[Rfam]
RNA: mir-9/mir-79 microRNA precursor family
Organism: Denticeps clupeoides
RNA sequence: GCGUUAUUAUCUUUGGUUAUCUAGCUGUAUGAGUGUGUUGGUCGUCAUAAAGCUAGAUAACCGAAAGUAAGAACUA
Numbered sequence: 001g002c003g004u005u006a007u008u009a010u011c012u013u014u015g016g017u018u019a020u021c022u023a024g025c026u027g028u029a030u031g032a033g034u035g036u037g038u039u040g041g042u043c044g045u046c047a048u049a050a051a052g053c054u055a056g057a058u059a060a061c062c063g064a065a066a067g068u069a070a071g072a073a074c075u076a
Stems, first nucleotide, its partner, number of pairs: 003074003007070004012065015028049005